[Rfam]
mir-156 microRNA precursor family: an 89-nucleotide RNA from Rhamnella rubrinervis. Rfam describes the family as follows. This family represents the plant microRNA (miRNA) precursor mir-156.
RNA sequence: GUGACAGAAGAGAGUGAGCACACAUGGGACUUUUUCUUGCAUGAAUAGUCCAUGCAGGAAGCUGUGCGUGCCCACCCUCUAUCUGUCGC
Numbered sequence: 001g002u003g004a005c006a007g008a009a010g011a012g013a014g015u016g017a018g019c020a021c022a023c024a025u026g027g028g029a030c031u032u033u034u035u036c037u038u039g040c041a042u043g044a045a046u047a048g049u050c051c052a053u054g055c056a057g058g059a060a061g062c063u064g065u066g067c068g069u070g071c072c073c074a075c076c077c078u079c080u081a082u083c084u085g086u087c088g089c
Base pairs, nucleotide, nucleotide: 001089002088003087004086005085006084007083008082010079011078012077014075015074016073018071019070020069021068023066024065025064
Taxonomically the source falls in Rhamnella (Eukaryota, Streptophytina, Spermatophyta, Rhamnaceae). Rfam 15.1 lists 1,401 matches to the family in 221 species. It scores 73 bits against the family's covariance model. For this family Rfam cites "MicroRNAs in plants" (Reinhart et al., Genes Dev, 2002).